[Rfam]
RNA sequence: CAGUGGGGUAGAGGUGCAGCCGGCAAGAGUAUUACCGGUGAGGGGGGCCCCGGUGAACUGGUAAGAAAGGGCCUGGCUGCCGAAGGAGGAUGGCUGGCCCGGGCCGUCUUCCUGGGCCGGUGGCUAAAUAAGCACCGGACUGUCACCGUCAUGGUGGAGCGCUACUCACACG
Numbered sequence: 001c002a003g004u005g006g007g008g009u010a011g012a013g014g015u016g017c018a019g020c021c022g023g024c025a026a027g028a029g030u031a032u033u034a035c036c037g038g039u040g041a042g043g044g045g046g047g048c049c050c051c052g053g054u055g056a057a058c059u060g061g062u063a064a065g066a067a068a069g070g071g072c073c074u075g076g077c078u079g080c081c082g083a084a085g086g087a088g089g090a091u092g093g094c095u096g097g098c099c100c101g102g103g104c105c106g107u108c109u110u111c112c113u114g115g116g117c118c119g120g121u122g123g124c125u126a127a128a129u130a131a132g133c134a135c136c137g138g139a140c141u142g143u144c145a146c147c148g149u150c151a152u153g154g155u156g157g158a159g160c161g162c163u164a165c166u167c168a169c170a171c172g
Stems, first nucleotide, its partner, number of pairs: 006167006016080006022073003032064008084113012114141002117138006143157006
This 172-nucleotide sequence from Neomoorella thermoacetica belongs to the Rfam family "Lysine riboswitch aptamer". It scores 117 bits against the family's covariance model. The source organism's lineage runs through Bacteria, Bacillota, Neomoorellales, Neomoorellaceae and Neomoorella.